[Rfam]
Rfam assigns this 82-nucleotide RNA to the family "skipping-rope RNA". The family's RNA type in Rfam is small RNA.

RNA sequence: UCGUUACGAGGGCGGAACAGGCAGCCGCCACCUCCGAGCAAUCGGAACAGGAGAUGCAGGGUACGCCGUCCUGCCACGACGC
Numbered sequence: 001u002c003g004u005u006a007c008g009a010g011g012g013c014g015g016a017a018c019a020g021g022c023a024g025c026c027g028c029c030a031c032c033u034c035c036g037a038g039c040a041a042u043c044g045g046a047a048c049a050g051g052a053g054a055u056g057c058a059g060g061g062u063a064c065g066c067c068g069u070c071c072u073g074c075c076a077c078g079a080c081g082c
Stems, first nucleotide, its partner, number of pairs: 002081004008075001011029005020067003031051001033046004056074005